[Rfam]
Nucleotides: 104
Stems, first nucleotide, its partner, number of pairs: 018090008030049006059080006
Number, partner (000 for none) and nucleotide at each position: 001000u002000u003000a004000u005000u006000c007000a008000a009000a010000a011000u012000u013000u014000u015000u016000u017000a018090u019089u020088c021087u022086u023085g024084u025083a026000u027000a028000a029000u030049u031048u032047c033046a034045g035044g036000u037000a038000a039000g040000a041000g042000g043000g044035u045034c046033u047032g048031a049030a050000c051000g052000u053000u054000u055000c056000u057000a058000c059080c060079u061078g062077g063076c064075a065000g066000c067000c068000g069000a070000u071000a072000a073000a074000a075064u076063g077062c078061c079060a080059g081000a082000c083025u084024a085023c086022a087021a088020g089019a090018a091000a092000g093000u094000g095000u096000g097000u098000a099000c100000a101000g102000c103000a104000a
Purine riboswitch aptamer: a 104-nucleotide RNA sequence from Metabacillus indicus. It scores 66 bits against the family's covariance model. The family's consensus secondary structure is taken from published work.